[Rfam]
RNA sequence: GGCAUUGCUUGGCAAACUUGCUGAAAGGUAAGGGCGCAAAGUCACCGGCCUAAAGGCAACCAUGGCAGCGGGACUGCGACA
Numbered sequence: 001g002g003c004a005u006u007g008c009u010u011g012g013c014a015a016a017c018u019u020g021c022u023g024a025a026a027g028g029u030a031a032g033g034g035c036g037c038a039a040a041g042u043c044a045c046c047g048g049c050c051u052a053a054a055g056g057c058a059a060c061c062a063u064g065g066c067a068g069c070g071g072g073a074c075u076g077c078g079a080c081a
Stems, first nucleotide, its partner, number of pairs: 012037002017032006040075004045071003048066003055060001

The family of this 81-nucleotide sequence from a Gallionellaceae bacterium is "c-di-GMP-I riboswitch aptamer". GEMM was predicted in a large-scale screen for bacterial structured RNA regulatory elements. Genes associated with GEMM are involved in a diverse array of functions, including chemotaxis regulation, signal transduction, secretion and chitin. A search with the family's covariance model found it, with a score of 62 bits.